[Rfam]
RNA: PyrR binding site
Organism: Streptococcus ferus
RNA sequence: AAAUCCUUUAAUACUGUCCCGUGAGGCAGGCAAGGAGAGAAUGGAUCAAUAAGGUGUGCUGUCUGUCAAACGGUGCCGUAUUUUGUGGAAUCUCCUUGUGUCAAGGAGAUUUUUUGUAU
Dot-bracket structure: ...(((((.....(((((......)))))..)))))...............(((((((.((((........)))).)))))))...((((((((((((...))))))))))))......